Small nucleolar RNA Z122: an 89-nucleotide sequence from Corchorus capsularis. NCBI's taxonomy places the organism under Eukaryota, Spermatophyta, Magnoliopsida, eudicotyledons, Corchorus. Rfam classes the family as a C/D-box small nucleolar RNA. For this family Rfam cites "The high diversity of snoRNAs in plants: identification and comparative study of 120 snoRNA genes from Oryza sativa" (Chen et al., Nucleic Acids Res, 2003). A search with the family's covariance model found it, with a score of 66 bits.

RNA sequence: UUUGGGAUAUGAUGACAGCUUAAUUGCUGGAUAGUAUCUGAGGCGUAAGCUUUGAAGAAUUAUCAUUUGCACGUCAGUCUGAUUCCAAA
Numbered sequence: 001u002u003u004g005g006g007a008u009a010u011g012a013u014g015a016c017a018g019c020u021u022a023a024u025u026g027c028u029g030g031a032u033a034g035u036a037u038c039u040g041a042g043g044c045g046u047a048a049g050c051u052u053u054g055a056a057g058a059a060u061u062a063u064c065a066u067u068u069g070c071a072c073g074u075c076a077g078u079c080u081g082a083u084u085c086c087a088a089a
Stems, first nucleotide, its partner, number of pairs: 001089007